RNA sequence: UGAUCUGCGGCGGGAGAGUCCUGCCGGUACAUCCAGUCAGGCGCCGUAGGAGCAAAUCCUCCCCAGGAAUCUCUCAGGCCCAUGUACCGCCGCGGUUAG
Numbered sequence: 001u002g003a004u005c006u007g008c009g010g011c012g013g014g015a016g017a018g019u020c021c022u023g024c025c026g027g028u029a030c031a032u033c034c035a036g037u038c039a040g041g042c043g044c045c046g047u048a049g050g051a052g053c054a055a056a057u058c059c060u061c062c063c064c065a066g067g068a069a070u071c072u073c074u075c076a077g078g079c080c081c082a083u084g085u086a087c088c089g090c091c092g093c094g095g096u097u098a099g
Base pairs, nucleotide, nucleotide: 006094007093008092009091010090011089012088013087020041021040022039023038043079044078045077046075050073051072052071057065
Glycine riboswitch aptamer: a 99-nucleotide sequence from Paenarthrobacter aurescens. The base pairs follow the family's consensus structure. This family represents the bacterial glycine riboswitch. The source organism's lineage runs through Bacteria, Bacillati, Actinomycetota, Micrococcaceae and Paenarthrobacter.